Rfam assigns this 129-nucleotide RNA from Nocardioides islandensis to the family "FMN riboswitch aptamer (RFN element)". Lineage of the source: Bacteria > Bacillati > Actinomycetes > Nocardioidaceae > Nocardioides.
RNA sequence: CACGUGCUCUGGGGUCGGUGAAAUUCCGAGCCGGCGGUGAAAGUCCGCGACCCGGUCACAGCCAGUGACCGGUUGACCAGGUGGAACUCCUGGACCGACGGUCAAAGUCCGGAUGGGAAGAAGCACGAG
Numbered sequence: 001c002a003c004g005u006g007c008u009c010u011g012g013g014g015u016c017g018g019u020g021a022a023a024u025u026c027c028g029a030g031c032c033g034g035c036g037g038u039g040a041a042a043g044u045c046c047g048c049g050a051c052c053c054g055g056u057c058a059c060a061g062c063c064a065g066u067g068a069c070c071g072g073u074u075g076a077c078c079a080g081g082u083g084g085a086a087c088u089c090c091u092g093g094a095c096c097g098a099c100g101g102u103c104a105a106a107g108u109c110c111g112g113a114u115g116g117g118a119a120g121a122a123g124c125a126c127g128a129g
Base pairs, nucleotide, nucleotide: 003127004126005125006124007123008122009120010119016028017027018026030108031107032097033096034048035047036046037045043095044094052072053071077093078092079091080090081089099111100110101109